[Rfam]
RNA sequence: ACGACCUUACUUGAACAGGAUCUGUUCUAUAGGAUCGUACCGCUACAUCCUUUACCAAAAAGGAGGCAAGAACUUAAGUCUGGUUGAUGCAUUCUGACCUCUGGGCCAGAGCGUGAAUAACGGCCUGGAUGAGUCCCUGGAUCCAUCCGACGGCUGUAGAGGAUCGUUCCUGCCUGGCUUCUCACACCGGUGCAGGGUGGCUCAGAGGUUGUCUGACAGACU
Numbered sequence: 001a002c003g004a005c006c007u008u009a010c011u012u013g014a015a016c017a018g019g020a021u022c023u024g025u026u027c028u029a030u031a032g033g034a035u036c037g038u039a040c041c042g043c044u045a046c047a048u049c050c051u052u053u054a055c056c057a058a059a060a061a062g063g064a065g066g067c068a069a070g071a072a073c074u075u076a077a078g079u080c081u082g083g084u085u086g087a088u089g090c091a092u093u094c095u096g097a098c099c100u101c102u103g104g105g106c107c108a109g110a111g112c113g114u115g116a117a118u119a120a121c122g123g124c125c126u127g128g129a130u131g132a133g134u135c136c137c138u139g140g141a142u143c144c145a146u147c148c149g150a151c152g153g154c155u156g157u158a159g160a161g162g163a164u165c166g167u168u169c170c171u172g173c174c175u176g177g178c179u180u181c182u183c184a185c186a187c188c189g190g191u192g193c194a195g196g197g198u199g200g201c202u203c204a205g206a207g208g209u210u211g212u213c214u215g216a217c218a219g220a221c222u
Stems, first nucleotide, its partner, number of pairs: 001038002003035001005033003013027006044068001046066001048064006078221005097209012110168004120157006126149006133142003169196005174190004
Rfam assigns this 222-nucleotide sequence from Brachypodium distachyon to the family "Plant small nucleolar RNA U3".
It is annotated as a C/D-box small nucleolar RNA.
Taxonomically the source falls in Brachypodium (Eukaryota, Embryophyta, Mesangiospermae, commelinids).
Rfam describes the family as follows. Small nucleolar RNAs (snoRNAs) are involved in the processing and modification of rRNA in the nucleolus. There are two main classes of snoRNAs: the box C/D class, and the box H/ACA class. U3 snoRNA is a member of the box C/D class. Indeed, the box C/D element is a subset of the six short sequence elements found in all U3 snoRNAs, namely boxes A, A', B, C, C', and D. The U3 snoRNA secondary structure is characterised by a small 5' domain (with boxes A and A'), and a larger 3' domain (with boxes B, C, C', and D), the two domains being linked by a single-stranded hinge.
Its family is annotated with nucleolus and RNA processing in the Gene Ontology.